[Rfam]
Shown here is a 74-nucleotide RNA, a member of the family "DUF3800-VIII RNA". Rfam's curators write: Bacteroidetes, Cyanobacteria, Firmicutes, Planctomycetes (1 example), Proteobacteria, Tenericutes (1 example).

RNA sequence: AAGGCCCUUCUCUUCGCGAAUCCUCAGGCUCUGCCUGGGGAACGGCUUCACAGCCAUAGCGGGAGCGGGGUCUU
Numbered sequence: 001a002a003g004g005c006c007c008u009u010c011u012c013u014u015c016g017c018g019a020a021u022c023c024u025c026a027g028g029c030u031c032u033g034c035c036u037g038g039g040g041a042a043c044g045g046c047u048u049c050a051c052a053g054c055c056a057u058a059g060c061g062g063g064a065g066c067g068g069g070g071u072c073u074u
Stems, first nucleotide, its partner, number of pairs: 001074008010065004015061003021041009

The family's consensus secondary structure is taken from published work.